[Rfam]
RNA sequence: AGAACUUUUUGUGACUGACGGAAGUGGGAGAACCACAGGGAGCAAAAAGCAUAGUUGCGGCCGACCGUCUGGGCAGUUCAA
Numbered sequence: 001a002g003a004a005c006u007u008u009u010u011g012u013g014a015c016u017g018a019c020g021g022a023a024g025u026g027g028g029a030g031a032a033c034c035a036c037a038g039g040g041a042g043c044a045a046a047a048a049g050c051a052u053a054g055u056u057g058c059g060g061c062c063g064a065c066c067g068u069c070u071g072g073g074c075a076g077u078u079c080a081a
Stems, first nucleotide, its partner, number of pairs: 005049008015039002017069005024036004058076001060074003

ZMP/ZTP riboswitch aptamer (pfl RNA motif): an 81-nucleotide RNA from Firmicutes bacterium CAG:114.
The source organism's lineage runs through Bacteria, Bacillati and Bacillota.
Pairs were carried over by alignment from the consensus structure, which is taken from published work.